[Rfam]
RNA: SAM riboswitch aptamer (S box leader)
Organism: Brevibacillus fulvus
RNA sequence: ACCUUAUCCAGAGAAGGUGGAGGGACUGGCCCGAUGAAACCCGGCAACCGACAUGGUGCAGAUUGUCUGCGCUGUGCACGGUGCUAAUUCCUGCAGAAACAAAUGAUUCUGGAAGAUAAGGG
Numbered sequence: 001a002c003c004u005u006a007u008c009c010a011g012a013g014a015a016g017g018u019g020g021a022g023g024g025a026c027u028g029g030c031c032c033g034a035u036g037a038a039a040c041c042c043g044g045c046a047a048c049c050g051a052c053a054u055g056g057u058g059c060a061g062a063u064u065g066u067c068u069g070c071g072c073u074g075u076g077c078a079c080g081g082u083g084c085u086a087a088u089u090c091c092u093g094c095a096g097a098a099a100c101a102a103a104u105g106a107u108u109c110u111g112g113a114a115g116a117u118a119a120g121g122g
Stems, first nucleotide, its partner, number of pairs: 002121007013042001016041003022032003026093001028091002043085004048081002050077001089114001094111005